[Rfam]
RNA sequence: AAGAAUAUAUGAUGAUCUCACCCUACUUUGAACUCUCUCACUGAUUACUUGAUGACAGUAAAAGAUCUGAUAUUCUG
Numbered sequence: 001a002a003g004a005a006u007a008u009a010u011g012a013u014g015a016u017c018u019c020a021c022c023c024u025a026c027u028u029u030g031a032a033c034u035c036u037c038u039c040a041c042u043g044a045u046u047a048c049u050u051g052a053u054g055a056c057a058g059u060a061a062a063a064g065a066u067c068u069g070a071u072a073u074u075c076u077g
Stems, first nucleotide, its partner, number of pairs: 002076006
The family of this 77-nucleotide RNA from Nannospalax galili is "Small nucleolar RNA SNORD81". The family's RNA type in Rfam is C/D-box small nucleolar RNA. The family's consensus secondary structure was predicted with PFOLD.